[Rfam]
RNA sequence: CAGCAUAUUCCCAAGGGCAUAGCUGGUUGUAGCUAUAGGAUCUCUAACUGCAUGCCAGAGUAACUGGAAAGAAUUUAACAGCCCAGGACAAAACAGUAACUGCAGAUGCCACUUGCUUUUCCUAUGUAU
Numbered sequence: 001c002a003g004c005a006u007a008u009u010c011c012c013a014a015g016g017g018c019a020u021a022g023c024u025g026g027u028u029g030u031a032g033c034u035a036u037a038g039g040a041u042c043u044c045u046a047a048c049u050g051c052a053u054g055c056c057a058g059a060g061u062a063a064c065u066g067g068a069a070a071g072a073a074u075u076u077a078a079c080a081g082c083c084c085a086g087g088a089c090a091a092a093a094c095a096g097u098a099a100c101u102g103c104a105g106a107u108g109c110c111a112c113u114u115g116c117u118u119u120u121c122c123u124a125u126g127u128a129u
Base pairs, nucleotide, nucleotide: 011038016034017033018032019030020029021028066122067121068120069119070118071117081109082108084102085101086100
RNA: Small nucleolar RNA SNORA44
Organism: Neotoma lepida